[Rfam]
RNA sequence: AUCAUGAUACUUCCGUCCAGCCAUAGAUACAAGCAAUGGGGGCGGCCGGGUGAGAUCCACGCGGGGGUGAGAUUCCCAUGA
Number, nucleotide and partner (000 for none) at each position: 001a000002u000003c000004a000005u000006g000007a000008u000009a000010c000011u000012u078013c045014c044015g043016u042017c041018c040019a000020g000021c000022c000023a000024u000025a000026g000027a000028u000029a000030c000031a000032a000033g000034c000035a000036a000037u000038g000039g000040g018041g017042g016043c015044g014045g013046c064047c063048g062049g000050g060051u059052g058053a000054g000055a000056u000057c000058c052059a051060c050061g000062c048063g047064g046065g077066g076067g075068u000069g000070a000071g000072a000073u000074u000075c067076c066077c065078a012079u000080g000081a000